[Rfam]
RNA sequence: GCCCGGGUGGCGGAAUGGCAGACGCGGAAGACUCAAAAUCUUUUGUUGGUAACAACGUGGGGGUUCAAGUCCCUUCCCGGGCA
Number, nucleotide and partner (000 for none) at each position: 001g082002c081003c080004c079005g078006g077007g076008u000009g000010g025011c024012g023013g000014a000015a000016u000017g000018g000019c000020a000021g000022a000023c012024g011025c010026g000027g043028a042029a041030g040031a039032c000033u000034c000035a000036a000037a000038a000039u031040c030041u029042u028043u027044u000045g000046u000047u000048g000049g000050u000051a000052a000053c000054a000055a000056c000057g000058u000059g075060g074061g073062g072063g071064u000065u000066c000067a000068a000069g000070u000071c063072c062073c061074u060075u059076c007077c006078c005079g004080g003081g002082c001083a000

Notes
The family of this 83-nucleotide sequence from Sporomusa termitida is "tRNA". By type it is a transfer RNA. The organism belongs to Sporomusa, within Bacteria. Rfam's curators write: Transfer RNA (tRNA) molecules are approximately 80 nucleotides in length. Their secondary structure includes four short double-helical elements and three loops (D, anti-codon, and T loops). Further hydrogen bonds mediate the characteristic L-shaped molecular structure. tRNAs have two regions of fundamental functional importance: the anti-codon, which is responsible for specific mRNA codon recognition, and the 3' end, to which the tRNAs corresponding amino acid is attached (by aminoacyl-tRNA synthetases). tRNAs cope with the degeneracy of the genetic code in two manners: having more than one tRNA (with a specific anti-codon) for a particular amino acid; and 'wobble' base-pairing, i.e. permitting non-standard base-pairing at the 3rd anti-codon position.